About this RNA: The family of this 85-nucleotide RNA sequence from Macaca mulatta is "mir-425 microRNA precursor family". Pairs were carried over by alignment from the consensus structure, which was predicted with RNAalifold.
RNA sequence: AAAGCGCUUUGGAAUGACACGAUCACUCCCGUUGAGUGGGCCCCCGAGAAGCCAUCGGGAAUGUCGUGUCCGCCCAGUGCUCUUU
Dot-bracket structure: .....((.((((...((((((((...(((((.((.((.............)))).)))))..))))))))...)))).)).....
Taxonomically the source falls in Macaca (Eukaryota, Deuterostomia, Gnathostomata, Amniota).